[Rfam]
RNA sequence: GGGGUGGCGAAACCGGCCGCGAACCCCUAUGUUCGUCGGGUCGGGCUUCGGCCCGUCUAUGGCGAUAAACGCUUCGCGGAAUAGGCGUUACGGACCCGGGGGCGGUACCCGGCGCCUCCACCACUUCUCGCAAGUGGCCCACUCUUCUGAGUGGAAUAUGGGGGCGAACUAGGAUCGACGUGCGUAGUAAAGGCGUAGUUUUUGCUCGGCAUGGUUCCGCCGUCAUCGGGCCAAAACCCUAGGUGCAAACGAUAACGUUGCUCCUUUCGCUGUCGCUGCCUAAUCAGCAGUAGAUAAGCGCGGUUCGAGGGGGCACCGGGCAACAGAAGCCCCCUCA
Numbered sequence: 001g002g003g004g005u006g007g008c009g010a011a012a013c014c015g016g017c018c019g020c021g022a023a024c025c026c027c028u029a030u031g032u033u034c035g036u037c038g039g040g041u042c043g044g045g046c047u048u049c050g051g052c053c054c055g056u057c058u059a060u061g062g063c064g065a066u067a068a069a070c071g072c073u074u075c076g077c078g079g080a081a082u083a084g085g086c087g088u089u090a091c092g093g094a095c096c097c098g099g100g101g102g103c104g105g106u107a108c109c110c111g112g113c114g115c116c117u118c119c120a121c122c123a124c125u126u127c128u129c130g131c132a133a134g135u136g137g138c139c140c141a142c143u144c145u146u147c148u149g150a151g152u153g154g155a156a157u158a159u160g161g162g163g164g165c166g167a168a169c170u171a172g173g174a175u176c177g178a179c180g181u182g183c184g185u186a187g188u189a190a191a192g193g194c195g196u197a198g199u200u201u202u203u204g205c206u207c208g209g210c211a212u213g214g215u216u217c218c219g220c221c222g223u224c225a226u227c228g229g230g231c232c233a234a235a236a237c238c239c240u241a242g243g244u245g246c247a248a249a250c251g252a253u254a255a256c257g258u259u260g261c262u263c264c265u266u267u268c269g270c271u272g273u274c275g276c277u278g279c280c281u282a283a284u285c286a287g288c289a290g291u292a293g294a295u296a297a298g299c300g301c302g303g304u305u306c307g308a309g310g311g312g313g314c315a316c317c318g319g320g321c322a323a324c325a326g327a328a329g330c331c332c333c334c335u336c337a
Stems, first nucleotide, its partner, number of pairs: 040057001042055005061206005071199003075195003086184003090181003096112005113166007207222004212233003216230003301318004309334006